This 74-nucleotide RNA from Crocodylus porosus belongs to the Rfam family "Mammalian CPEB3 ribozyme". The base pairs follow the family's consensus structure, which is taken from published work. NCBI's taxonomy places the organism under Eukaryota, Craniata, Dipnotetrapodomorpha, Archelosauria, Crocodylus.
RNA sequence: GUUGCAAAUUUGAGGCCAUAGCAGAAGCGCUCAUGGCGUGGCCUGUCAGAUCCAAUGAAUCUGCAAAAUCUGCU
Numbered sequence: 001g002u003u004g005c006a007a008a009u010u011u012g013a014g015g016c017c018a019u020a021g022c023a024g025a026a027g028c029g030c031u032c033a034u035g036g037c038g039u040g041g042c043c044u045g046u047c048a049g050a051u052c053c054a055a056u057g058a059a060u061c062u063g064c065a066a067a068a069u070c071u072g073c074u
Stems, first nucleotide, its partner, number of pairs: 014043004020074006027039003047063005052057001
Rfam 15.1 lists 5,706 matches to the family in 197 species.